[Rfam]
RNA: DUF3800-VII RNA
RNA sequence: UGCAGGCAAGCGCGGGGCUUGUAGAGGUCGCCGAAAGGUGGCAGCCCGAAAGGGUGGGAUCCUCGAACCCGGGGCCUGUUUAAAU
Numbered sequence: 001u002g003c004a005g006g007c008a009a010g011c012g013c014g015g016g017g018c019u020u021g022u023a024g025a026g027g028u029c030g031c032c033g034a035a036a037g038g039u040g041g042c043a044g045c046c047c048g049a050a051a052g053g054g055u056g057g058g059a060u061c062c063u064c065g066a067a068c069c070c071g072g073g074g075c076c077u078g079u080u081u082a083a084a085u
Base pairs, nucleotide, nucleotide: 002079003078004077005076006075007074011072013071014070015069016068022066024064025063026062027042028041029040030039031038032037045054046053047052